[Rfam]
RNA sequence: UAUCUGCGGUGAUGUUACAUGAAUAAAAAUACACAUGUCAGACUUCAGAGAUUUUUUUUUCAUCAAAAAAUCAAUGAGAUAGAAUAUUCAUAGAGCUGAGCAGAAA
Numbered sequence: 001u002a003u004c005u006g007c008g009g010u011g012a013u014g015u016u017a018c019a020u021g022a023a024u025a026a027a028a029a030u031a032c033a034c035a036u037g038u039c040a041g042a043c044u045u046c047a048g049a050g051a052u053u054u055u056u057u058u059u060u061c062a063u064c065a066a067a068a069a070a071u072c073a074a075u076g077a078g079a080u081a082g083a084a085u086a087u088u089c090a091u092a093g094a095g096c097u098g099a100g101c102a103g104a105a106a
Stems, first nucleotide, its partner, number of pairs: 001106001003104005050072008